[Rfam]
RNA: Guanidine-II riboswitch aptamer (mini-ykkC)
Organism: Aureimonas sp. Leaf454
RNA sequence: GCGCGGGGACGACCUCACGCCUGCAUUCUCAUUCGGGACGACCCG
Numbered sequence: 001g002c003g004c005g006g007g008g009a010c011g012a013c014c015u016c017a018c019g020c021c022u023g024c025a026u027u028c029u030c031a032u033u034c035g036g037g038a039c040g041a042c043c044c045g
Base pairs, nucleotide, nucleotide: 001020002019003018005016006015007014008013034045035044036043037042